[Rfam]
RNA: Guanidine-II riboswitch aptamer (mini-ykkC)
Organism: Thermomonospora umbrina
RNA sequence: GUGGGGGGACGACCCCCCACGCUUGUUUUCAUGUGGGGGGACGACCCCC
Numbered sequence: 001g002u003g004g005g006g007g008g009a010c011g012a013c014c015c016c017c018c019a020c021g022c023u024u025g026u027u028u029u030c031a032u033g034u035g036g037g038g039g040g041a042c043g044a045c046c047c048c049c
Stems, first nucleotide, its partner, number of pairs: 001020008036049005